[Rfam]
Description
This 78-nucleotide sequence from Oryza sativa belongs to the Rfam family "Plastid-rpl20 3UTR RNA". Rfam's curators write: Plastid rpl20 is a non-coding RNA (ncRNA) recognised in plastids. The match comes from Rfam's covariance-model search (60 bits). Pairs were carried over by alignment from the consensus structure, which was predicted with LocARNA.

RNA sequence: AGGCCUUUAGCCGAGGUAACUCCGGGAAGAUACAAUAAAUUAAGACUAAGUGGUAGGAAUCAACAAGCAUGUUGCAAU
Numbered sequence: 001a002g003g004c005c006u007u008u009a010g011c012c013g014a015g016g017u018a019a020c021u022c023c024g025g026g027a028a029g030a031u032a033c034a035a036u037a038a039a040u041u042a043a044g045a046c047u048a049a050g051u052g053g054u055a056g057g058a059a060u061c062a063a064c065a066a067g068c069a070u071g072u073u074g075c076a077a078u
Base pairs, nucleotide, nucleotide: 007028008027011025012024013023015021061074062073063072064071